[Rfam]
RNA: MIR397 microRNA precursor family
Organism: Colocasia esculenta
RNA sequence: AUUGAAAGCAUCAUUGAGUGCAGCGUUGAUGAAUUCCCCAGCCCCACACAUCUGCUCCUCAUCUCUGAAGGUACAUUUCGGAUUUCCGGACGAAUUCGUCAGCGCUGCACUCGAUAAUGCUUUCA
Numbered sequence: 001a002u003u004g005a006a007a008g009c010a011u012c013a014u015u016g017a018g019u020g021c022a023g024c025g026u027u028g029a030u031g032a033a034u035u036c037c038c039c040a041g042c043c044c045c046a047c048a049c050a051u052c053u054g055c056u057c058c059u060c061a062u063c064u065c066u067g068a069a070g071g072u073a074c075a076u077u078u079c080g081g082a083u084u085u086c087c088g089g090a091c092g093a094a095u096u097c098g099u100c101a102g103c104g105c106u107g108c109a110c111u112c113g114a115u116a117a118u119g120c121u122u123u124c125a
Stems, first nucleotide, its partner, number of pairs: 006122006013115016030098007